[Rfam]
RNA sequence: GAUAUGCGUUGACGCGGGAGGUUGCCACGUUUUUCGUGGGUUUUUCCGCCGAGUAUGUCCGAUCCAGAACCGGGCGAAAA
Number, nucleotide and partner (000 for none) at each position: 001g000002a000003u000004a000005u000006g000007c000008g000009u000010u000011g000012a000013c000014g049015c048016g047017g000018g046019a045020g044021g043022u000023u000024g000025c039026c038027a037028c036029g035030u000031u000032u000033u000034u000035c029036g028037u027038g026039g025040g000041u000042u000043u021044u020045u019046c018047c016048g015049c014050c000051g000052a000053g000054u000055a000056u079057g000058u077059c076060c000061g000062a000063u074064c073065c072066a000067g000068a000069a000070c000071c000072g065073g064074g063075c000076g059077a058078a000079a056080a000
Background: Shown here is an 80-nucleotide sequence from Anaerofilum hominis, a member of the family "S10-Clostridia ribosomal protein leader". The family's consensus secondary structure is taken from published work. A reference for the family is Eckert and Weinberg (2020), "Discovery of 20 novel ribosomal leader candidates in bacteria and archaea", BMC Microbiol. It is annotated as a cis-regulatory leader.